Small nucleolar RNA snR48: a 111-nucleotide RNA sequence from Zygosaccharomyces rouxii. NCBI's taxonomy places the organism under Eukaryota, Fungi, Saccharomycotina, Saccharomycetaceae, Zygosaccharomyces. Its Rfam clan is "SNORD60 clan". For this family Rfam cites "A computational screen for methylation guide snoRNAs in yeast" (Lowe and Eddy, Science, 1999).
RNA sequence: CGUACAUGAUGAGUAUAUACGUACUAUGUUUAUUUUCUGGCAUCUCUAAUGUUAGGGCGGAGUUUAAGUACUACCGUUCGAUGAAUAGAACUCAUGACGACAAAUCUGAUA
Numbered sequence: 001c002g003u004a005c006a007u008g009a010u011g012a013g014u015a016u017a018u019a020c021g022u023a024c025u026a027u028g029u030u031u032a033u034u035u036u037c038u039g040g041c042a043u044c045u046c047u048a049a050u051g052u053u054a055g056g057g058c059g060g061a062g063u064u065u066a067a068g069u070a071c072u073a074c075c076g077u078u079c080g081a082u083g084a085a086u087a088g089a090a091c092u093c094a095u096g097a098c099g100a101c102a103a104a105u106c107u108g109a110u111a
Base pairs, nucleotide, nucleotide: 056078057077058076059075